[Rfam]
RNA: Small nucleolar RNA Z157/R69/R10
Organism: Sorghum bicolor
RNA sequence: UUUUGAGUGGUGAUGAGCAAUUGUGUUUUGGACUAGAGUUUCUGAUACUACUUGUGGUAGUUGAAGACCAAACCCUUGGCUGUCUGAACUCAAAU
Numbered sequence: 001u002u003u004u005g006a007g008u009g010g011u012g013a014u015g016a017g018c019a020a021u022u023g024u025g026u027u028u029u030g031g032a033c034u035a036g037a038g039u040u041u042c043u044g045a046u047a048c049u050a051c052u053u054g055u056g057g058u059a060g061u062u063g064a065a066g067a068c069c070a071a072a073c074c075c076u077u078g079g080c081u082g083u084c085u086g087a088a089c090u091c092a093a094a095u
Stems, first nucleotide, its partner, number of pairs: 002094007039066004046059005